[Rfam]
RNA sequence: UCGCAUAUGAUGAGAUAAUACUCGGAUUCCCCUUCACGACAUCAUGGAUGAUGUGAACUCGAGUUUCUGAUGCG
Numbered sequence: 001u002c003g004c005a006u007a008u009g010a011u012g013a014g015a016u017a018a019u020a021c022u023c024g025g026a027u028u029c030c031c032c033u034u035c036a037c038g039a040c041a042u043c044a045u046g047g048a049u050g051a052u053g054u055g056a057a058c059u060c061g062a063g064u065u066u067c068u069g070a071u072g073c074g
Stems, first nucleotide, its partner, number of pairs: 002074004
RNA: Small nucleolar RNA snoR60
Organism: Malus domestica